[Rfam]
The record is an 88-nucleotide RNA from Clupea harengus, which matches "mir-132 microRNA precursor family" in Rfam. For this family Rfam cites "The developmental miRNA profiles of zebrafish as determined by small RNA cloning" (Chen et al., Genes Dev, 2005). The base pairs follow the family's consensus structure, which was predicted with RNAalifold. A search with the family's covariance model found it, with a score of 68 bits. Rfam links the family to the GO terms RISC complex and miRNA-mediated post-transcriptional gene silencing.
RNA sequence: GCACGUCAGGACCUUGGCUCUAGACUGCUUACUGCUUACACACUCUAAAAGCACAGUAACAGUCUACAGUCAUGGCUACUGAAGUCUG
Numbered sequence: 001g002c003a004c005g006u007c008a009g010g011a012c013c014u015u016g017g018c019u020c021u022a023g024a025c026u027g028c029u030u031a032c033u034g035c036u037u038a039c040a041c042a043c044u045c046u047a048a049a050a051g052c053a054c055a056g057u058a059a060c061a062g063u064c065u066a067c068a069g070u071c072a073u074g075g076c077u078a079c080u081g082a083a084g085u086c087u088g
Base pairs, nucleotide, nucleotide: 012075013074015072016071017070018069023064024063025062026061027060029059030058031057032056033055